[Rfam]
RNA sequence: AAGGCAUAAUGAUGAUUGUUUUAUUGUCAUCUGAUUCAUGAUGAAUCAAUACCUCCUACUCAUUCUGA
Dot-bracket structure: .....((.(.................((..(........)..))...............).)).....